Shown here is a 153-nucleotide RNA from Barnesiella sp. WM24, a member of the family "RT-3 RNA". The family's consensus secondary structure is taken from published work. A search with the family's covariance model found it, with a score of 67 bits.
RNA sequence: AAUCGUAAGACCCUGCUCGGCGGCGUGUCCGUCAUUGCAUUUCUGCGAGGGAUACGAGCCUCGGCAACAGCAGACGAAAGUCUGGAAAGCGGAAACAUCACAGGAGUCCUGAAGGCUUUAAUAAUGGAUAAGAUUGUAGAAAUACCGUUCAUG
Numbered sequence: 001a002a003u004c005g006u007a008a009g010a011c012c013c014u015g016c017u018c019g020g021c022g023g024c025g026u027g028u029c030c031g032u033c034a035u036u037g038c039a040u041u042u043c044u045g046c047g048a049g050g051g052a053u054a055c056g057a058g059c060c061u062c063g064g065c066a067a068c069a070g071c072a073g074a075c076g077a078a079a080g081u082c083u084g085g086a087a088a089g090c091g092g093a094a095a096c097a098u099c100a101c102a103g104g105a106g107u108c109c110u111g112a113a114g115g116c117u118u119u120a121a122u123a124a125u126g127g128a129u130a131a132g133a134u135u136g137u138a139g140a141a142a143u144a145c146c147g148u149u150c151a152u153g
Stems, first nucleotide, its partner, number of pairs: 003048005010041001014039003019033005050060002061093002064090002071084005108153001110151003114146002118142001124137004